[Rfam]
RNA sequence: UUUUUGUGAAACUUGGCACUGGAAGAAUUCACAGAUAGAAAAUGAAAAAUCGUGGGUCUUUUGGUGCCAAAGUUCACGGAAU
Number, nucleotide and partner (000 for none) at each position: 001u000002u000003u080004u079005u078006g077007u076008g075009a074010a073011a000012c000013u070014u069015g068016g067017c066018a065019c000020u063021g062022g061023a059024a000025g058026a057027a000028u000029u055030c054031a053032c052033a000034g050035a000036u000037a000038g000039a000040a000041a000042a000043u000044g000045a000046a000047a000048a000049a000050u034051c000052g032053u031054g030055g029056g000057u026058c025059u023060u000061u022062u021063g020064g000065u018066g017067c016068c015069a014070a013071a000072g000073u010074u009075c008076a007077c006078g005079g004080a003081a000082u000